RNA sequence: UACGAUAAAGGCAAACUCUGAGCAAUCAGAGGACGCAAAGUAAAGGGUCUUUUAAGCAUACAGGGAAGUAGCAUAAAAUACCUUACUAAAAAAGACAGCCUUACUGCCGAAG
Numbered sequence: 001u002a003c004g005a006u007a008a009a010g011g012c013a014a015a016c017u018c019u020g021a022g023c024a025a026u027c028a029g030a031g032g033a034c035g036c037a038a039a040g041u042a043a044a045g046g047g048u049c050u051u052u053u054a055a056g057c058a059u060a061c062a063g064g065g066a067a068g069u070a071g072c073a074u075a076a077a078a079u080a081c082c083u084u085a086c087u088a089a090a091a092a093a094g095a096c097a098g099c100c101u102u103a104c105u106g107c108c109g110a111a112g
Stems, first nucleotide, its partner, number of pairs: 001112001003109002011036002016031006034098001039105004044101003047096007
Overview:
A member of the RNA family "c-di-GMP-I-GGC riboswitch aptamer" from Candidatus Brocadia sinica, 112 nucleotides long. It scores 67 bits against the family's covariance model. The family has 40 seed sequences and 1,298 matches in Rfam 15.1.